[Rfam]
RNA sequence: GAACAUAAACGCGCUCGCAAUAAGCGGAUCGGACCAGGGGGCGGUACCCUGCGUCUCCACCAAUCACUCCCGCACAUCGCCUUCAUUUGAGGCAUGGAUGGGGCACAUGGGGACGAAAUAGGAUCGACGGACGUCUAAAGGGGUUAGCUUUGUUUCGGUGAGUUACCACCGUUAUCGGUACACAAUGAGUAGUUGCAAAUGACAACAAAGCUCCAAUGGCUCUCGCAGCGUAA
Numbered sequence: 001g002a003a004c005a006u007a008a009a010c011g012c013g014c015u016c017g018c019a020a021u022a023a024g025c026g027g028a029u030c031g032g033a034c035c036a037g038g039g040g041g042c043g044g045u046a047c048c049c050u051g052c053g054u055c056u057c058c059a060c061c062a063a064u065c066a067c068u069c070c071c072g073c074a075c076a077u078c079g080c081c082u083u084c085a086u087u088u089g090a091g092g093c094a095u096g097g098a099u100g101g102g103g104c105a106c107a108u109g110g111g112g113a114c115g116a117a118a119u120a121g122g123a124u125c126g127a128c129g130g131a132c133g134u135c136u137a138a139a140g141g142g143g144u145u146a147g148c149u150u151u152g153u154u155u156c157g158g159u160g161a162g163u164u165a166c167c168a169c170c171g172u173u174a175u176c177g178g179u180a181c182a183c184a185a186u187g188a189g190u191a192g193u194u195g196c197a198a199a200u201g202a203c204a205a206c207a208a209a210g211c212u213c214c215a216a217u218g219g220c221u222c223u224c225g226c227a228g229c230g231u232a233a
Base pairs, nucleotide, nucleotide: 001155002154003153004152005151013144014143015142016141025133026132029130030129031128035051036050037049038048039047052115053114054113055112056111057110058109156171157170158169159168
The record is a 233-nucleotide RNA from Pacificibacter maritimus, which matches "permuted transfer-messenger RNA" in Rfam.
A search with the family's covariance model found it, with a score of 134 bits.
Its family is annotated with RNA catabolic process in the Gene Ontology.
About the family: Bacterial tmRNA, also known as 10Sa RNA or SsrA, is named for its dual tRNA and mRNA-like properties. Its role is to liberate the mRNA from a stalled ribosome. To accomplish this part of the tmRNA is used as a reading frame that ends in a translation stop signal.
The organism belongs to Pacificibacter, within Bacteria.